The family of this 61-nucleotide RNA sequence from Phaseolibacter flectens is "L31-Gammaproteobacteria ribosomal protein leader". The literature on the family includes a 2020 paper in BMC Microbiol by Eckert and Weinberg, "Discovery of 20 novel ribosomal leader candidates in bacteria and archaea". The family's consensus secondary structure is taken from published work.
RNA sequence: CGUGUGGUGCCGUGCGGAUCCUGUAUCUGGUGCGGAGAGCGACGCGGACUUCUAUCGAGGU
Number, nucleotide and partner (000 for none) at each position: 001c046002g045003u044004g043005u042006g000007g040008u039009g000010c035011c034012g033013u032014g031015c030016g000017g000018a000019u000020c000021c000022u000023g000024u000025a000026u000027c000028u000029g000030g015031u014032g013033c012034g011035g010036a000037g000038a000039g008040c007041g000042a005043c004044g003045c002046g001047g000048a000049c000050u000051u000052c000053u000054a000055u000056c000057g000058a000059g000060g000061u000